[Rfam]
RNA: msiK RNA
RNA sequence: GCCCGUUUCCCAACACUCGGAUCGUUCGGCACGUACCUGCCGAUGUAAGGAAAACUCA
Numbered sequence: 001g002c003c004c005g006u007u008u009c010c011c012a013a014c015a016c017u018c019g020g021a022u023c024g025u026u027c028g029g030c031a032c033g034u035a036c037c038u039g040c041c042g043a044u045g046u047a048a049g050g051a052a053a054a055c056u057c058a
Stems, first nucleotide, its partner, number of pairs: 009050002013046003026043006